[Rfam]
RNA: c-di-GMP-I riboswitch aptamer
Organism: Candidatus Brocadia sapporoensis
RNA sequence: AUUCGACAAAGGCAAACCCCGAGUGCUCGGGGGACGCAAAGGAAAGGGUCUUUAAACGUACAGGGACGUACGGGGACACAGAGGCAGGGUCCCUUAACACAUUAAGGAAAUGGCUUUAGAAAAGACAGCCUUACUGACGAA
Numbered sequence: 001a002u003u004c005g006a007c008a009a010a011g012g013c014a015a016a017c018c019c020c021g022a023g024u025g026c027u028c029g030g031g032g033g034a035c036g037c038a039a040a041g042g043a044a045a046g047g048g049u050c051u052u053u054a055a056a057c058g059u060a061c062a063g064g065g066a067c068g069u070a071c072g073g074g075g076a077c078a079c080a081g082a083g084g085c086a087g088g089g090u091c092c093c094u095u096a097a098c099a100c101a102u103u104a105a106g107g108a109a110a111u112g113g114c115u116u117u118a119g120a121a122a123a124g125a126c127a128g129c130c131u132u133a134c135u136g137a138c139g140a141a
Stems, first nucleotide, its partner, number of pairs: 012037002017032006040135002043132001045131003048126006